[Rfam]
RNA: Saccharopolyspora sRNA 350
Organism: Streptomyces luteolifulvus
Nucleotides: 505
Base pairs, nucleotide, nucleotide: 006390007389008388009387011385012384016380018328021325022324025322027320029318031316032315037311038310039309040308041307042306045305047303048302050300054233055232057230059228060227061226062225063224065111066110067109068108077102082097083096085094086093118221120219122217123216126213127212129210130209132206133205135203140198141197143196144195149192150191155188156187157186158185159184161178162177234296235295236294240290241289242288243287244286245285249283252280253279254278256277257276258275259271260270261269329342330341331340332339353377355375356374357373360372361371362370391431392430393429394428395427397425399423400422403418405416407415437476440473442471443470444469445468446467447465448464449463450462451461452460481501482500484499487496488495
Number, partner (000 for none) and nucleotide at each position: 001000c002000g003000g004000g005000c006390g007389g008388u009387g010000u011385a012384c013000u014000c015000c016380c017000a018328g019000a020000c021325g022324g023000c024000g025322u026000c027320g028000g029318g030000g031316u032315c033000c034000a035000g036000c037311a038310g039309g040308g041307c042306c043000u044000g045305g046000u047303c048302g049000c050300c051000g052000a053000a054233g055232u056000a057230c058000g059228c060227g061226c062225c063224g064000u065111c066110g067109g068108c069000g070000a071000g072000g073000a074000c075000u076000c077102c078000g079000a080000g081000g082097a083096c084000c085094g086093c087000g088000u089000c090000g091000c092000c093086g094085c095000c096083g097082u098000a099000g100000g101000g102077g103000c104000c105000g106000g107000u108068g109067c110066c111065g112000a113000u114000c115000u116000u117000c118221u119000c120219c121000a122217c123216c124000c125000u126213g127212c128000c129210g130209u131000g132206u133205g134000c135203c136000a137000g138000c139000a140198g141197g142000a143196a144195c145000a146000c147000c148000u149192c150191g151000u152000c153000c154000g155188c156187c157186c158185g159184g160000c161178u162177g163000c164000c165000g166000a167000a168000c169000g170000a171000g172000g173000c174000g175000a176000u177162c178161a179000c180000g181000u182000u183000c184159c185158c186157g187156g188155g189000g190000g191150c192149g193000a194000a195144g196143u197141c198140c199000c200000u201000g202000c203135g204000c205133c206132g207000g208000c209130a210129c211000u212127g213126c214000g215000c216123g217122g218000c219120g220000a221118g222000c223000u224063c225062g226061g227060c228059g229000a230057g231000c232055a233054c234296g235295u236294c237000c238000u239000c240290g241289u242288c243287g244286u245285c246000g247000u248000a249283c250000g251000a252280c253279c254278g255000c256277a257276g258275u259271g260270c261269g262000g263000g264000c265000a266000g267000u268000u269261c270260g271259c272000c273000c274000a275258g276257u277256u278254c279253g280252g281000c282000g283249g284000g285245g286244a287243u288242g289241a290240c291000c292000u293000c294236g295235a296234c297000a298000c299000g300050g301000u302048c303047g304000c305045c306042g307041g308040u309039c310038u311037u312000c313000a314000c315032g316031a317000a318029c319000g320027u321000c322025a323000c324022c325021c326000g327000g328018c329342c330341g331340u332339c333000g334000c335000c336000g337000a338000c339332g340331g341330c342329g343000u344000a345000g346000g347000c348000c349000a350000g351000u352000c353377g354000c355375c356374g357373g358000u359000u360372c361371a362370c363000c364000c365000g366000g367000u368000a369000c370362g371361u372360g373357c374356c375355g376000c377353c378000c379000u380016g381000c382000a383000c384012g385011u386000u387009c388008a389007c390006c391431c392430a393429g394428g395427g396000c397425a398000g399423c400422g401000u402000g403418c404000g405416c406000a407415g408000c409000a410000g411000c412000c413000a414000g415407c416405g417000g418403g419000a420000g421000c422400u423399g424000a425397u426000c427395u428394c429393c430392u431391g432000c433000a434000u435000c436000u437476g438000g439000g440473g441000u442471g443470c444469g445468g446467a447465c448464u449463u450462g451461g452460u453000g454000g455000u456000g457000g458000u459000g460452g461451c462450c463449a464448g465447g466000u467446u468445c469444c470443g471442c472000g473440c474000g475000g476437c477000c478000g479000c480000c481501g482500u483000a484499c485000c486000a487496a488495g489000g490000c491000u492000c493000u494000g495488c496487u497000g498000c499484g500482g501481c502000c503000u504000g505000u